[Rfam]
RNA sequence: GAGCGGACGCCGCCGAGUCGCCCUCCGGGCGAGCCGGGGACCCGCCGCAGUACUGGGGUGAACCCCACUCCGGACACACCGUCCGGAGUGGGGAGGGCUGCUUCCCGCCCGAACCCGUCAGCUAACUCGGUAGGCGGCCAUCGGGAGAACGG
Numbered sequence: 001g002a003g004c005g006g007a008c009g010c011c012g013c014c015g016a017g018u019c020g021c022c023c024u025c026c027g028g029g030c031g032a033g034c035c036g037g038g039g040a041c042c043c044g045c046c047g048c049a050g051u052a053c054u055g056g057g058g059u060g061a062a063c064c065c066c067a068c069u070c071c072g073g074a075c076a077c078a079c080c081g082u083c084c085g086g087a088g089u090g091g092g093g094a095g096g097g098c099u100g101c102u103u104c105c106c107g108c109c110c111g112a113a114c115c116c117g118u119c120a121g122c123u124a125a126c127u128c129g130g131u132a133g134g135c136g137g138c139c140a141u142c143g144g145g146a147g148a149a150c151g152g
Base pairs, nucleotide, nucleotide: 011136012135013134014133018032019031020030033131034130035129036128037127038126043055044054056116057115058114064092065091066090067089068088069087070086071085072084073083074082075081095110096109097108098107
RNA: c-di-AMP riboswitch aptamer (ydaO/yuaA leader)
Organism: Geodermatophilus sp. DF01-2